[Rfam]
RNA sequence: UUUGAUACGGGCAAUGAGGUCUGCCAUUAACCGCCACGCAAAGGCUAAUGACUUCUGCAAUUAC
Numbered sequence: 001u002u003u004g005a006u007a008c009g010g011g012c013a014a015u016g017a018g019g020u021c022u023g024c025c026a027u028u029a030a031c032c033g034c035c036a037c038g039c040a041a042a043g044g045c046u047a048a049u050g051a052c053u054u055c056u057g058c059a060a061u062u063a064c
Base pairs, nucleotide, nucleotide: 010025011024012023013022016055017054018053019052020051021050033045034044035043
Fluoride riboswitch aptamer (crcB RNA motif): a 64-nucleotide RNA sequence from Prolixibacter sp. SD074. The match comes from Rfam's covariance-model search (50 bits). Gene Ontology terms of the family: positive regulation of gene expression and response to fluoride. The source organism's lineage runs through Bacteria, Bacteroidota, Marinilabiliales, Prolixibacteraceae and Prolixibacter.